RNA sequence: AUUGGAAGUUUGAGGCUGUAGCAGAAGUGCUCAUCAUGCGGCCAUGUCAGAUUCCAGUGAAACUGUAAAUUCUGCU
Numbered sequence: 001a002u003u004g005g006a007a008g009u010u011u012g013a014g015g016c017u018g019u020a021g022c023a024g025a026a027g028u029g030c031u032c033a034u035c036a037u038g039c040g041g042c043c044a045u046g047u048c049a050g051a052u053u054c055c056a057g058u059g060a061a062a063c064u065g066u067a068a069a070u071u072c073u074g075c076u
Base pairs, nucleotide, nucleotide: 014043015042016041017040020076021075022074023073024072025071026070027039028038029037048065049064050063052061053060054059
The record is a 76-nucleotide RNA from Crocodylus porosus, which matches "Mammalian CPEB3 ribozyme" in Rfam. The match comes from Rfam's covariance-model search (43 bits). On this family, see Salehi-Ashtiani et al., Science 2006: "A genomewide search for ribozymes reveals an HDV-like sequence in the human CPEB3 gene".